[Rfam]
RNA sequence: CCCGUUACCGAGGGGAGCCCCGCCGACGGGGGCUGAGAUUGGACGAGCGCGCGUCCUGACCCUUGAACCUGAUCCGGUUCGUACCGGCGGAGGGACGGGAACCUGCCAUGAC
Numbered sequence: 001c002c003c004g005u006u007a008c009c010g011a012g013g014g015g016a017g018c019c020c021c022g023c024c025g026a027c028g029g030g031g032g033c034u035g036a037g038a039u040u041g042g043a044c045g046a047g048c049g050c051g052c053g054u055c056c057u058g059a060c061c062c063u064u065g066a067a068c069c070u071g072a073u074c075c076g077g078u079u080c081g082u083a084c085c086g087g088c089g090g091a092g093g094g095a096c097g098g099g100a101a102c103c104u105g106c107c108a109u110g111a112c
Base pairs, nucleotide, nucleotide: 006100008098009097010096011063012062013061014060016057017033018032019031020030021029041056042055043054044053068093069092070091074087075086076085077084

A member of the RNA family "TPP riboswitch aptamer (THI element)" from Methylobacterium terrae, 112 nucleotides long.
The match comes from Rfam's covariance-model search (67 bits).
Pairs were carried over by alignment from the consensus structure, which is taken from published work.
The organism belongs to Methylobacterium, within Bacteria.
Vitamin B(1) in its active form thiamin pyrophosphate (TPP) is an essential coenzyme that is synthesised by coupling of pyrimidine and thiazole moieties in bacteria.